[Rfam]
RNA sequence: UUCAUAAUCAAAGCGCCUGGACUGUCCGCGGACGAAGCAGCUGGACAGUUGACGAGGAGGAGGUUCAUCGAUGAUCGGCGGAUGCCUCCCGGUUGCAAGCCACAACCGUAAGCACAAGAGGGAAAACAGAAAGGUGACUUUCUGGACAAAGCCUUGUGCGCUGGCACAA
Numbered sequence: 001u002u003c004a005u006a007a008u009c010a011a012a013g014c015g016c017c018u019g020g021a022c023u024g025u026c027c028g029c030g031g032a033c034g035a036a037g038c039a040g041c042u043g044g045a046c047a048g049u050u051g052a053c054g055a056g057g058a059g060g061a062g063g064u065u066c067a068u069c070g071a072u073g074a075u076c077g078g079c080g081g082a083u084g085c086c087u088c089c090c091g092g093u094u095g096c097a098a099g100c101c102a103c104a105a106c107c108g109u110a111a112g113c114a115c116a117a118g119a120g121g122g123a124a125a126a127c128a129g130a131a132a133g134g135u136g137a138c139u140u141u142c143u144g145g146a147c148a149a150a151g152c153c154u155u156g157u158g159c160g161c162u163g164g165c166a167c168a169a
Stems, first nucleotide, its partner, number of pairs: 020050008059089005068078004090108006112159007127144007
The record is a 169-nucleotide sequence from Salsuginibacillus halophilus, which matches "glmS glucosamine-6-phosphate activated ribozyme aptamer" in Rfam. The source organism's lineage runs through Bacteria, Bacillati, Bacillota, Caryophanales and Salsuginibacillus. This entry contains a glucosamine-6-phosphate activated ribozyme that is found in the mRNA for GlmS. GlmS is an enzyme that uses fructose-6-phosphate and glutamine to generate glucosamine-6-phosphate.